[Rfam]
RNA sequence: AAAUUUCUACCCGGGAAAAGGGAAAGCCACCCUACCCGGAAUCGAGCCUCGAGCCCAUGAAGGUAACAACACGGGUUAAGCGUAGGCAGAGCGACGUUCAGGCCGUAACGCAAGUGAAGCUAUAGAGCCUCGUUAGAACAACCGGGGGCCGACGGAGUCGAAUAUCCGGAAGGCUACAGUAGAUUUCCGCCAAUGGCGAGGAAAUCGGAGACCCCGGCGGGGUCUGAGUGCA
Dot-bracket structure: ...........((((....(((...[[..)))..))))...((..(((((((((((.((..(....)..)).)))))...)).)))).))..................................(.((((((.........(((((((((..((((........))))...))).....(.(((((((.......]]..))))))).)...)))))))))))))........
Notes:
The family of this 232-nucleotide RNA from Desulfosporosinus acididurans is "Group II catalytic intron D1-D4-6". A search with the family's covariance model found it, with a score of 139 bits. Pairs were carried over by alignment from the consensus structure.